[Rfam]
This 66-nucleotide RNA from Eucalyptus erythrocorys belongs to the Rfam family "Plastid-rps12 3UTR RNA".

RNA sequence: GGUUUCCGAUGAGAAAAAAUUCCUCAUUGGUAACAAAUAGUUAUUCAUUAAGCGGGGAAAUCCUAU
Numbered sequence: 001g002g003u004u005u006c007c008g009a010u011g012a013g014a015a016a017a018a019a020u021u022c023c024u025c026a027u028u029g030g031u032a033a034c035a036a037a038u039a040g041u042u043a044u045u046c047a048u049u050a051a052g053c054g055g056g057g058a059a060a061u062c063c064u065a066u
Stems, first nucleotide, its partner, number of pairs: 022057004026048002029045006
On this family, see Richter et al., Plant Commun 2023: "Retrograde signaling in plants: A critical review focusing on the GUN pathway and beyond". The organism belongs to Eucalyptus, within Eukaryota. The family's consensus secondary structure was predicted with LocARNA. The family has 1,299 seed sequences and 1,710 matches in Rfam 15.1.